[Rfam]
RNA sequence: CUGCACAGGGAACACCCAUGUGUGCUUCGUAGCUCUCUUGGUCCUUUACCUGUGCCAGAGGAAGGUGUGGUCUGUACCUCUGCAUUGGAAGAGCUGCCAAUUCUUCCACAUGUAUUCAACAGACCAGUACAUUU
Numbered sequence: 001c002u003g004c005a006c007a008g009g010g011a012a013c014a015c016c017c018a019u020g021u022g023u024g025c026u027u028c029g030u031a032g033c034u035c036u037c038u039u040g041g042u043c044c045u046u047u048a049c050c051u052g053u054g055c056c057a058g059a060g061g062a063a064g065g066u067g068u069g070g071u072c073u074g075u076a077c078c079u080c081u082g083c084a085u086u087g088g089a090a091g092a093g094c095u096g097c098c099a100a101u102u103c104u105u106c107c108a109c110a111u112g113u114a115u116u117c118a119a120c121a122g123a124c125c126a127g128u129a130c131a132u133u134u
Stems, first nucleotide, its partner, number of pairs: 003055006010049001014045001016041003020037001022035001024033003057073003062068001081118002083112003087107007